[Rfam]
Nucleotides: 093
Base pairs, nucleotide, nucleotide: 001093002092003091004090005089006088007087008085011026012025013024014023015022016021029043030042031041032040047067048066049065050064051063070084071083072082073081
Number, partner (000 for none) and nucleotide at each position: 001093g002092g003091g004090g005089g006088u007087a008085g009000a010000u011026a012025g013024g014023u015022g016021c017000u018000g019000g020000u021016g022015u023014g024013c025012c026011u027000a028000c029043c030042g031041g032040u033000c034000u035000u036000c037000a038000a039000a040032a041031c042030c043029g044000u045000g046000u047067u048066g049065c050064g051063g052000c053000g054000u055000u056000a057000g058000u059000a060000g061000c062000g063051u064050c065049g066048u067047g068000g069000g070084u071083g072082a073081g074000u075000u076000c077000g078000a079000u080000u081073c082072u083071c084070a085008c086000a087007u088006a089005c090004u091003c092002c093001c
The record is a 93-nucleotide RNA from Clostridium tepidiprofundi, which matches "Selenocysteine transfer RNA" in Rfam.
Pairs were carried over by alignment from the consensus structure, which is taken from published work.
Lineage of the source: Bacteria > Bacillati > Bacillota > Clostridiaceae > Clostridium tepidiprofundi.
Clan: tRNA clan.